[Rfam]
Background
Shown here is a 97-nucleotide sequence from Equus caballus, a member of the family "mir-9058 microRNA precursor family".
RNA sequence: GUGAUUGCCAGGCGGGUCCUCUCUACUAGUGCUGUGCAGAGGCUUUCACUGAGGCUCCUGUGAGCCUGUAGAGUUUCCCCUUGGGCUGUGGAGACAG
Numbered sequence: 001g002u003g004a005u006u007g008c009c010a011g012g013c014g015g016g017u018c019c020u021c022u023c024u025a026c027u028a029g030u031g032c033u034g035u036g037c038a039g040a041g042g043c044u045u046u047c048a049c050u051g052a053g054g055c056u057c058c059u060g061u062g063a064g065c066c067u068g069u070a071g072a073g074u075u076u077c078c079c080c081u082u083g084g085g086c087u088g089u090g091g092a093g094a095c096a097g
Base pairs, nucleotide, nucleotide: 002096003095005093006092007086008085009084010082011081014080015079016078021073022072023071024070025069026068028067029066031065032064033063036061037060038059039058041056042055043054044053045052046051
The organism belongs to Equus, within Eukaryota. The match comes from Rfam's covariance-model search (81 bits).